[Rfam]
The family of this 73-nucleotide sequence from Camelus ferus is "tRNA". From the family's description: Transfer RNA (tRNA) molecules are approximately 80 nucleotides in length. It is annotated as a transfer RNA. The match comes from Rfam's covariance-model search (47 bits).
RNA sequence: GAGGAUAUAGCUCAAGUGGUAGAGUGCAUGUCUAGCAUGCAUGAGGUUCUGGGUUCAACCCCCAGUACCUCCU
Numbered sequence: 001g002a003g004g005a006u007a008u009a010g011c012u013c014a015a016g017u018g019g020u021a022g023a024g025u026g027c028a029u030g031u032c033u034a035g036c037a038u039g040c041a042u043g044a045g046g047u048u049c050u051g052g053g054u055u056c057a058a059c060c061c062c063c064a065g066u067a068c069c070u071c072c073u
Base pairs, nucleotide, nucleotide: 001072003070004069006067007066010025011024012023013022027043028042029041030040031039049065050064051063052062053061
Dot-bracket structure: (.((.((..((((........)))).(((((.......))))).....(((((.......))))))).)).).